[Rfam]
Record summary
Shown here is a 122-nucleotide RNA from Rhizobium sp. BK376, a member of the family "Alphaproteobacterial ar14". The pairing is the family consensus, mapped onto this sequence. Smr14C2 was renamed NfeR1 (Nodule Formation Efficiency RNA) highly expressed in salt stress and during the symbiotic interaction on legume roots. A search with the family's covariance model found it, with a score of 117 bits. The source organism's lineage runs through Bacteria, Pseudomonadati, Pseudomonadota, Alphaproteobacteria and Rhizobium.
RNA sequence: AAACAUCGAAACGGCGAUCUCCUCCUCCCAUAGCCGUUUCGUUGGAUCGGCAACACUCCUCCUCCCAGUUGCCGAUCAGGUUUGAAGGCCCGACGAAUCUCCUCCCUCGUCGGGCCUCUUCA
Numbered sequence: 001a002a003a004c005a006u007c008g009a010a011a012c013g014g015c016g017a018u019c020u021c022c023u024c025c026u027c028c029c030a031u032a033g034c035c036g037u038u039u040c041g042u043u044g045g046a047u048c049g050g051c052a053a054c055a056c057u058c059c060u061c062c063u064c065c066c067a068g069u070u071g072c073c074g075a076u077c078a079g080g081u082u083u084g085a086a087g088g089c090c091c092g093a094c095g096a097a098u099c100u101c102c103u104c105c106c107u108c109g110u111c112g113g114g115c116c117u118c119u120u121c122a
Stems, first nucleotide, its partner, number of pairs: 007041003011037005017031001045077010086117011